[Rfam]
RNA sequence: CUUCGCAGCCCUCCUUGGGCGUUUCCUCCCUAGACUUGGGCCGUUCGGAUUGAACGGCCCUUUUUUCUUGGCCGG
Numbered sequence: 001c002u003u004c005g006c007a008g009c010c011c012u013c014c015u016u017g018g019g020c021g022u023u024u025c026c027u028c029c030c031u032a033g034a035c036u037u038g039g040g041c042c043g044u045u046c047g048g049a050u051u052g053a054a055c056g057g058c059c060c061u062u063u064u065u066u067c068u069u070g071g072c073c074g075g
Base pairs, nucleotide, nucleotide: 008020009019010018011017038060039059040058041057042056043055044054045053046052

Rfam assigns this 75-nucleotide RNA sequence from Hyphomicrobium denitrificans to the family "Makes More Granules Regulator RNA (mmgR)". The base pairs follow the family's consensus structure. Lineage of the source: Bacteria > Pseudomonadati > Pseudomonadota > Alphaproteobacteria > Hyphomicrobium denitrificans. Rfam 15.1 lists 1,791 matches to the family in 918 species.